[Rfam]
RNA sequence: UCGGGAGAGGUUCAUAGCAUUUUACCCUCUAUAAAAAACUAUGGAUUG
Number, nucleotide and partner (000 for none) at each position: 001u000002c000003g000004g000005g000006a030007g029008a028009g027010g026011u000012u000013c000014a000015u041016a040017g000018c000019a000020u000021u000022u000023u000024a000025c000026c010027c009028u008029c007030u006031a000032u000033a000034a000035a000036a000037a000038a000039c000040u016041a015042u000043g000044g000045a000046u000047u000048g000